RNA sequence: UACGACACCUAUCAAAGGAGUCAUUCCACAUCCAAGAGCUACUUUACCAUAUUCCGAAUUC
Numbered sequence: 001u002a003c004g005a006c007a008c009c010u011a012u013c014a015a016a017g018g019a020g021u022c023a024u025u026c027c028a029c030a031u032c033c034a035a036g037a038g039c040u041a042c043u044u045u046a047c048c049a050u051a052u053u054c055c056g057a058a059u060u061c
Stems, first nucleotide, its partner, number of pairs: 017045005024038003
Shown here is a 61-nucleotide RNA from Durio zibethinus, a member of the family "Plastid-psbN 5UTR RNA". The literature on the family includes a 2012 paper in Plant Cell by Zhelyazkova et al., "The primary transcriptome of barley chloroplasts: numerous noncoding RNAs and the dominating role of the plastid-encoded RNA polymerase". From the family's description: Plastid psbN is a non-coding RNA (ncRNA) recognised in plastids.